[Rfam]
RNA: Archaeal signal recognition particle RNA
Organism: Methanosphaerula palustris
RNA sequence: UUGGGAACUAGCCCGGGUGGCUCGGCGUCACCUGUUAUCCGAAACCGCCGCCAUGCGGAGGGCGAAGUUUGAGGAAGGCUUUAACGAUCUGACUGAGUCUGGUGUAUCCCAACGUUGAUACCUUGUCCUGCGAGGUCGGCGGACAGGAUUCAAUACUCCGGAGGGAGUUGCGACCUGUUGCUGCGGACACCGGUCCAGGCCCGGAAGGGAGCAGACUUACUGUAGACGUUUGGCGCCCGCGGGAGUGCGGGGUGGAGGAGGGGUCUCUAGCAAGGUCAGGCACGUACUGUCGACCGAUAACGCGUUCCCAU
Numbered sequence: 001u002u003g004g005g006a007a008c009u010a011g012c013c014c015g016g017g018u019g020g021c022u023c024g025g026c027g028u029c030a031c032c033u034g035u036u037a038u039c040c041g042a043a044a045c046c047g048c049c050g051c052c053a054u055g056c057g058g059a060g061g062g063c064g065a066a067g068u069u070u071g072a073g074g075a076a077g078g079c080u081u082u083a084a085c086g087a088u089c090u091g092a093c094u095g096a097g098u099c100u101g102g103u104g105u106a107u108c109c110c111a112a113c114g115u116u117g118a119u120a121c122c123u124u125g126u127c128c129u130g131c132g133a134g135g136u137c138g139g140c141g142g143a144c145a146g147g148a149u150u151c152a153a154u155a156c157u158c159c160g161g162a163g164g165g166a167g168u169u170g171c172g173a174c175c176u177g178u179u180g181c182u183g184c185g186g187a188c189a190c191c192g193g194u195c196c197a198g199g200c201c202c203g204g205a206a207g208g209g210a211g212c213a214g215a216c217u218u219a220c221u222g223u224a225g226a227c228g229u230u231u232g233g234c235g236c237c238c239g240c241g242g243g244a245g246u247g248c249g250g251g252g253u254g255g256a257g258g259a260g261g262g263g264u265c266u267c268u269a270g271c272a273a274g275g276u277c278a279g280g281c282a283c284g285u286a287c288u289g290u291c292g293a294c295c296g297a298u299a300a301c302g303c304g305u306u307c308c309c310a311u
Stems, first nucleotide, its partner, number of pairs: 002310007011063004015033007038059004043054001067301003073295002077291003087285002090282002093279004098274001099270004104265001106264005113257001115255001119254008127243006134236001135234004139229003142179006150173002155168005181225006192217004200209003